[Rfam]
RNA: Bacterial RNase P class B
RNA sequence: AAUGGAAGAUGAUCGAGCGGUAACGUUAGGAAAGUCCAUACUAACACAGACUUUUAUAGUUUGUAGUGUUUGUGUCUAAGGAAAAAAUAACUUAGAGUAUCGAAAGAUAACGGCGAAUUCAGUGUCUAAGGGAAACUAUGAUACUAAUUUGUAAAGUGCCACAGUGACGAAUCAUUUAGAAAUAAAUGGGUGAAACGAGGUAAACCCCACAAGUUAGAAACCCAAAUUUUGGUAGGGGAACAUUGAUUUUUGAGAAAAAAUUGAUGCUACAAUUUUGUAGAGAUAAAUGAUCAUACCUAUUUAUAGGAACAGAAUAUGGCUUAUGCAC
Numbered sequence: 001a002a003u004g005g006a007a008g009a010u011g012a013u014c015g016a017g018c019g020g021u022a023a024c025g026u027u028a029g030g031a032a033a034g035u036c037c038a039u040a041c042u043a044a045c046a047c048a049g050a051c052u053u054u055u056a057u058a059g060u061u062u063g064u065a066g067u068g069u070u071u072g073u074g075u076c077u078a079a080g081g082a083a084a085a086a087a088u089a090a091c092u093u094a095g096a097g098u099a100u101c102g103a104a105a106g107a108u109a110a111c112g113g114c115g116a117a118u119u120c121a122g123u124g125u126c127u128a129a130g131g132g133a134a135a136c137u138a139u140g141a142u143a144c145u146a147a148u149u150u151g152u153a154a155a156g157u158g159c160c161a162c163a164g165u166g167a168c169g170a171a172u173c174a175u176u177u178a179g180a181a182a183u184a185a186a187u188g189g190g191u192g193a194a195a196c197g198a199g200g201u202a203a204a205c206c207c208c209a210c211a212a213g214u215u216a217g218a219a220a221c222c223c224a225a226a227u228u229u230u231g232g233u234a235g236g237g238g239a240a241c242a243u244u245g246a247u248u249u250u251u252g253a254g255a256a257a258a259a260a261u262u263g264a265u266g267c268u269a270c271a272a273u274u275u276u277g278u279a280g281a282g283a284u285a286a287a288u289g290a291u292c293a294u295a296c297c298u299a300u301u302u303a304u305a306g307g308a309a310c311a312g313a314a315u316a317u318g319g320c321u322u323a324u325g326c327a328c
Stems, first nucleotide, its partner, number of pairs: 004328001007324001009294006016027004032322003036319005041217005046064006070212005075096006097111001098109004112207002115150004123143004130137002156205002158201003173188006221237003241266007267280005296307004